[Rfam]
RNA: SAM riboswitch aptamer (S box leader)
Organism: Bacillus mesophilum
RNA sequence: UUCUUAUCAAGAGAGGUGGAGGGACUGGCCCUACGAAACCCGGCAACCGGUUAAUUACACGGUGCUAAUUCCAGCAGAGCAGAUGCUCUGAAAGAUAAGAA
Numbered sequence: 001u002u003c004u005u006a007u008c009a010a011g012a013g014a015g016g017u018g019g020a021g022g023g024a025c026u027g028g029c030c031c032u033a034c035g036a037a038a039c040c041c042g043g044c045a046a047c048c049g050g051u052u053a054a055u056u057a058c059a060c061g062g063u064g065c066u067a068a069u070u071c072c073a074g075c076a077g078a079g080c081a082g083a084u085g086c087u088c089u090g091a092a093a094g095a096u097a098a099g100a101a
Stems, first nucleotide, its partner, number of pairs: 001101008013041001015040003021031003025074004042066004047062002049058001070093001075090006